[Rfam]
RNA: mir-5928 microRNA precursor family
RNA sequence: GGCCCAAACUCGAAGUAGAGUAGUUUAGUAGGGUCAGCUGAUACUAGAAAUCUACUCUACUUCAAAUUUGUGCUC
Numbered sequence: 001g002g003c004c005c006a007a008a009c010u011c012g013a014a015g016u017a018g019a020g021u022a023g024u025u026u027a028g029u030a031g032g033g034u035c036a037g038c039u040g041a042u043a044c045u046a047g048a049a050a051u052c053u054a055c056u057c058u059a060c061u062u063c064a065a066a067u068u069u070g071u072g073c074u075c
Stems, first nucleotide, its partner, number of pairs: 001074003005070004012063012025050002029046002033042003